[Rfam]
RNA sequence: UGCUCUUUGUGACGGCCUGCUCUGAAAGCCCUCUGUGGGCGGGGAUGGGCCUGAUGUUGAGUA
Numbered sequence: 001u002g003c004u005c006u007u008u009g010u011g012a013c014g015g016c017c018u019g020c021u022c023u024g025a026a027a028g029c030c031c032u033c034u035g036u037g038g039g040c041g042g043g044g045a046u047g048g049g050c051c052u053g054a055u056g057u058u059g060a061g062u063a
Stems, first nucleotide, its partner, number of pairs: 001063005014051006021044003029039003
Rfam assigns this 63-nucleotide sequence from Acipenser ruthenus to the family "Selenocysteine insertion sequence 1". Rfam 15.1 lists 3,793 matches to the family in 721 species. For this family Rfam cites "A novel RNA structural motif in the selenocysteine insertion element of eukaryotic selenoprotein mRNAs" (Walczak et al., RNA, 1996). From the family's description: The incorporation of selenocysteine into a protein sequence is directed by an in-frame UGA codon (usually a stop codon) within the coding region of the mRNA. Selenoprotein mRNAs contain a conserved secondary structure in the 3' UTR that is required for the distinction of UGA stop from UGA selenocysteine. The selenocysteine insertion sequence (SECIS) is around 60 nt in length and adopts a hairpin structure which is sufficiently well-defined and conserved to act as a computational screen for selenoprotein genes. The organism belongs to Acipenser, within Eukaryota.